[Rfam]
RNA: SAM (S-adenosyl methionine) riboswitch aptamer
RNA sequence: GGUCAAGAGUCUCAGCGUCAAGCCCUGGCUAGCUGAGCGGCAACCCUCCAACCGCGGUGGGGUGCUCCAGGUGACGACCGGGCCGCAUCGUCAGCCAGAUGCUGCGGCAAGCGCGGACC
Numbered sequence: 001g002g003u004c005a006a007g008a009g010u011c012u013c014a015g016c017g018u019c020a021a022g023c024c025c026u027g028g029c030u031a032g033c034u035g036a037g038c039g040g041c042a043a044c045c046c047u048c049c050a051a052c053c054g055c056g057g058u059g060g061g062g063u064g065c066u067c068c069a070g071g072u073g074a075c076g077a078c079c080g081g082g083c084c085g086c087a088u089c090g091u092c093a094g095c096c097a098g099a100u101g102c103u104g105c106g107g108c109a110a111g112c113g114c115g116g117a118c119c
Stems, first nucleotide, its partner, number of pairs: 001079004009038001011037006021030002039066003044062003048057002082108006089101003